[Rfam]
The record is a 118-nucleotide RNA from Luteimonas marina, which matches "Glycine riboswitch aptamer" in Rfam.
RNA sequence: GGCAAACACUCUGGAGAGACCGACCGGCUUUGCCGGAACCGGCGCCGAAGGGGCACGAAGCGCGCGAUCCUCGUCGGCGCGCUUCCAAACUCUCAGGCAAAAGGACAGAGGGGCAAAA
Numbered sequence: 001g002g003c004a005a006a007c008a009c010u011c012u013g014g015a016g017a018g019a020c021c022g023a024c025c026g027g028c029u030u031u032g033c034c035g036g037a038a039c040c041g042g043c044g045c046c047g048a049a050g051g052g053g054c055a056c057g058a059a060g061c062g063c064g065c066g067a068u069c070c071u072c073g074u075c076g077g078c079g080c081g082c083u084u085c086c087a088a089a090c091u092c093u094c095a096g097g098c099a100a101a102a103g104g105a106c107a108g109a110g111g112g113g114c115a116a117a118a
Stems, first nucleotide, its partner, number of pairs: 007112001009110005020042003044098003047094002051092003057085009